[Rfam]
RNA sequence: UCUGGAGGAAUGAUGACAAUAAAAGGCUGAAUUUCAGUGUCUCCAUCAGCUCUUACUUUCUGGGUAGGUGCCUGACGAUAAAACCUCCUGAAGGGCACCAAUGGUCUGAUCUCAGU
Number, nucleotide and partner (000 for none) at each position: 001u000002c115003u114004g113005g000006a112007g111008g110009a000010a000011u000012g000013a000014u000015g106016a105017c104018a000019a000020u000021a000022a000023a000024a000025g000026g035027c000028u000029g000030a000031a000032u000033u000034u000035c026036a102037g000038u100039g099040u000041c000042u000043c095044c093045a000046u091047c090048a089049g088050c000051u000052c000053u000054u070055a069056c068057u067058u066059u000060c000061u000062g000063g000064g000065u000066a058067g057068g056069u055070g054071c000072c000073u000074g087075a086076c000077g084078a000079u000080a000081a000082a000083a000084c077085c000086u075087c074088c049089u048090g047091a046092a000093g044094g000095g043096c000097a000098c000099c039100a038101a000102u036103g000104g017105u016106c015107u000108g000109a000110u008111c007112u006113c004114a003115g002116u000